[Rfam]
This 86-nucleotide RNA sequence from Sinocyclocheilus anshuiensis belongs to the Rfam family "Small nucleolar RNA SNORD60".
Taxonomically the source falls in Sinocyclocheilus (Eukaryota, Chordata, Gnathostomata, Cypriniformes).
RNA sequence: AGCCGCUGAUGACUUCUAAUACUUUUCUGACACCUCGUAUGAACGCUGUAUUACAGCAGCUGAUUAUAAAUUCUAGUCUGAGGCUC
Numbered sequence: 001a002g003c004c005g006c007u008g009a010u011g012a013c014u015u016c017u018a019a020u021a022c023u024u025u026u027c028u029g030a031c032a033c034c035u036c037g038u039a040u041g042a043a044c045g046c047u048g049u050a051u052u053a054c055a056g057c058a059g060c061u062g063a064u065u066a067u068a069a070a071u072u073c074u075a076g077u078c079u080g081a082g083g084c085u086c
Stems, first nucleotide, its partner, number of pairs: 001085004045057005